Rfam assigns this 100-nucleotide RNA from Piliocolobus tephrosceles to the family "Y RNA". It scores 54 bits against the family's covariance model. Y RNAs are components of the Ro ribonucleoprotein particle (Ro RNP), in association with Ro60 and La proteins. Taxonomically the source falls in Piliocolobus (Eukaryota, Deuterostomia, Chordata, Cercopithecoidea).
RNA sequence: GGCUGGUACAAUGGUAGUGGGUUAUCAGAACUUAUUAACAUUAUCAUCACCAAAACUGGUAUACAACCCCCACCCCACUGCUAAAUUUGACUGGCUUUAU
Numbered sequence: 001g002g003c004u005g006g007u008a009c010a011a012u013g014g015u016a017g018u019g020g021g022u023u024a025u026c027a028g029a030a031c032u033u034a035u036u037a038a039c040a041u042u043a044u045c046a047u048c049a050c051c052a053a054a055a056c057u058g059g060u061a062u063a064c065a066a067c068c069c070c071c072a073c074c075c076c077a078c079u080g081c082u083a084a085a086u087u088u089g090a091c092u093g094g095c096u097u098u099a100u
Base pairs, nucleotide, nucleotide: 001096002095003094004093005092006091007090010088011087015083016079017078018077019076020075021074033061034060035059037057